[Rfam]
RNA sequence: UGGGAGUACGCCGAAAAUCCUAUAAAGAGUAGGCA
Numbered sequence: 001u002g003g004g005a006g007u008a009c010g011c012c013g014a015a016a017a018u019c020c021u022a023u024a025a026a027g028a029g030u031a032g033g034c035a
Base pairs, nucleotide, nucleotide: 002021003020004019005018010034011033012032

The family of this 35-nucleotide RNA sequence is "DUF805b RNA".
The family's consensus secondary structure is taken from published work.